[Rfam]
RNA sequence: AUGUGCCGCUCGUACGCUCUGAUUCUGGGCACAUAGUCCAUGACUACCUGACGACUGUUCGCCACGUCUUGUCAGCG
Numbered sequence: 001a002u003g004u005g006c007c008g009c010u011c012g013u014a015c016g017c018u019c020u021g022a023u024u025c026u027g028g029g030c031a032c033a034u035a036g037u038c039c040a041u042g043a044c045u046a047c048c049u050g051a052c053g054a055c056u057g058u059u060c061g062c063c064a065c066g067u068c069u070u071g072u073c074a075g076c077g
Base pairs, nucleotide, nucleotide: 002016003015004014005013006012020036022034023033048075049074050073051072052071053070054069
About this RNA
Xanthomonas sRNA sX9: a 77-nucleotide sequence from Xanthomonas campestris. It scores 48 bits against the family's covariance model. The literature on the family includes a 2011 paper in Nucleic Acids Res by Schmidtke et al., "Genome-wide transcriptome analysis of the plant pathogen Xanthomonas identifies sRNAs with putative virulence functions".